[Rfam]
RNA sequence: CUUGAUCAGACCUAUCUGGACUUCAGAUCAUCCUCGGGAAGGUACGCCUACCUCACGCCACCCGCCGAGGAC
Number, nucleotide and partner (000 for none) at each position: 001c000002u000003u030004g029005a028006u027007c026008a023009g022010a000011c000012c000013u000014a000015u000016c000017u000018g000019g000020a000021c000022u009023u008024c000025a000026g007027a006028u005029c004030a003031u000032c000033c000034u000035c000036g000037g000038g054039a053040a000041g052042g051043u050044a049045c000046g000047c000048c000049u044050a043051c042052c041053u039054c038055a000056c000057g000058c000059c000060a000061c000062c000063c000064g000065c000066c000067g000068a000069g000070g000071a000072c000
A member of the RNA family "Actinobacteria sRNA Ms_AS-8" from Tessaracoccus bendigoensis, 72 nucleotides long. By type it is a small RNA. Taxonomically the source falls in Tessaracoccus bendigoensis (Bacteria, Bacillati, Propionibacteriales, Propionibacteriaceae).